[Rfam]
Notes:
Bacterial RNase P class A: a 323-nucleotide sequence from Helicobacter mustelae. By type it is a ribozyme. Gene Ontology terms of the family: tRNA processing, dimeric ribonuclease P complex and ribonuclease P activity. The match comes from Rfam's covariance-model search (244 bits).

RNA sequence: CUGGUAUAGCAGGUGAUUGCUCAGAUUCUGAGAGGAAAGUCCGAGCUACAGAGACAGGAUUCCAUUUAACAAAUGGCUAGCGUAAGCUAAGGGAAAGUGCAACAGAAAAGAACCGCUAUUUUUUAUAGUAAGGGUGAAAAGGUGGGGUAAGAGCCCACCGGGAUUGAAGCAAUUCUCUCCGUCCGUGUAAACCCAAUCCGUAGCAAAAAGAGUAUGGUUAGUGUCUCAUUCUUCAAAACUCUUUGCUUGAGCGUCGUUGUAAAACCGCGCCUAGAUAAAUAAUCACUCAAUGACAGAACUCGGCUUAUCGCUAUACCAAAUUC
Numbered sequence: 001c002u003g004g005u006a007u008a009g010c011a012g013g014u015g016a017u018u019g020c021u022c023a024g025a026u027u028c029u030g031a032g033a034g035g036a037a038a039g040u041c042c043g044a045g046c047u048a049c050a051g052a053g054a055c056a057g058g059a060u061u062c063c064a065u066u067u068a069a070c071a072a073a074u075g076g077c078u079a080g081c082g083u084a085a086g087c088u089a090a091g092g093g094a095a096a097g098u099g100c101a102a103c104a105g106a107a108a109a110g111a112a113c114c115g116c117u118a119u120u121u122u123u124u125a126u127a128g129u130a131a132g133g134g135u136g137a138a139a140a141g142g143u144g145g146g147g148u149a150a151g152a153g154c155c156c157a158c159c160g161g162g163a164u165u166g167a168a169g170c171a172a173u174u175c176u177c178u179c180c181g182u183c184c185g186u187g188u189a190a191a192c193c194c195a196a197u198c199c200g201u202a203g204c205a206a207a208a209a210g211a212g213u214a215u216g217g218u219u220a221g222u223g224u225c226u227c228a229u230u231c232u233u234c235a236a237a238a239c240u241c242u243u244u245g246c247u248u249g250a251g252c253g254u255c256g257u258u259g260u261a262a263a264a265c266c267g268c269g270c271c272u273a274g275a276u277a278a279a280u281a282a283u284c285a286c287u288c289a290a291u292g293a294c295a296g297a298a299c300u301c302g303g304c305u306u307a308u309c310g311c312u313a314u315a316c317c318a319a320a321u322u323c
Stems, first nucleotide, its partner, number of pairs: 002318009011308001012287007020032005037306003041303005046203004057199005062076005077091001078089004092194002097192002099188003113133002115129005141159006160183001161180003166175003207244007215236001221233001223231001251270004256265003